[Rfam]
Rfam assigns this 61-nucleotide RNA sequence from Lentivirus humimdef1 to the family "Trans-activation response element (TAR)".
On this family, see Klase et al., Retrovirology 2009: "HIV-1 TAR miRNA protects against apoptosis by altering cellular gene expression".
Gene Ontology terms of the family: miRNA-mediated post-transcriptional gene silencing and RISC complex.
Rfam's curators put it in the seed alignment.
This family represents the HIV trans-activation response (TAR) element which is known to be required for the trans-activation of the viral promoter and for virus replication.
The organism belongs to Lentivirus humimdef1, within Viruses.
The family's consensus secondary structure is taken from published work.
By type it is a microRNA precursor.
RNA sequence: GGGUCUCUCUGGUUAGGCCAGGUCUGAGCCUGGGAGCUCUCUGGCUAGCUUAGGAACCCAU
Numbered sequence: 001g002g003g004u005c006u007c008u009c010u011g012g013u014u015a016g017g018c019c020a021g022g023u024c025u026g027a028g029c030c031u032g033g034g035a036g037c038u039c040u041c042u043g044g045c046u047a048g049c050u051u052a053g054g055a056a057c058c059c060a061u
Stems, first nucleotide, its partner, number of pairs: 001059004006055003011050006018044005026039004
Dot-bracket structure: ((((.(((..((((((.(((((...((((......)))))))))))))))..)))))))..